[Rfam]
RNA: MIR5387 microRNA precursor family
Organism: Sorghum bicolor
RNA sequence: UUGUAACACGAGUCGGUGCUAAAGGGGCCUGCCCAACGGCUACUGACAAGUGCUGUCGGGGUAGGGACCCUUUAGCACCGGGUCUUGUUACCAA
Numbered sequence: 001u002u003g004u005a006a007c008a009c010g011a012g013u014c015g016g017u018g019c020u021a022a023a024g025g026g027g028c029c030u031g032c033c034c035a036a037c038g039g040c041u042a043c044u045g046a047c048a049a050g051u052g053c054u055g056u057c058g059g060g061g062u063a064g065g066g067a068c069c070c071u072u073u074a075g076c077a078c079c080g081g082g083u084c085u086u087g088u089u090a091c092c093a094a
Stems, first nucleotide, its partner, number of pairs: 003091006010084002013081014029065002032060003036056002044048001
Dot-bracket structure: ..((((((.((.((((((((((((((..((.(((.((......(...)......)).)))...))..)))))))))))))).)).))))))...